[Rfam]
RNA sequence: UUGCGGCGGGCAAGUCUCAUGCGACCAGCUCCUGCGGAACUCCCCCAGGCCCGGAAGGGAGCAAGGGUACGUGGUCGUAGCGGUGCGACAUGAGUAGCUUGCCCACUU
Number, nucleotide and partner (000 for none) at each position: 001u000002u000003g000004c000005g000006g000007c000008g104009g103010g102011c101012a100013a099014g098015u097016c000017u093018c092019a091020u090021g089022c087023g086024a084025c083026c000027a000028g000029c000030u000031c000032c000033u000034g000035c000036g000037g000038a000039a000040c000041u000042c000043c000044c000045c000046c000047a000048g000049g000050c000051c000052c000053g000054g000055a000056a000057g000058g000059g000060a000061g000062c000063a000064a000065g000066g000067g000068u000069a000070c000071g000072u000073g000074g000075u000076c000077g000078u000079a000080g000081c000082g000083g025084u024085g000086c023087g022088a000089c021090a020091u019092g018093a017094g000095u000096a000097g015098c014099u013100u012101g011102c010103c009104c008105a000106c000107u000108u000
RNA: Bacteroidales small SRP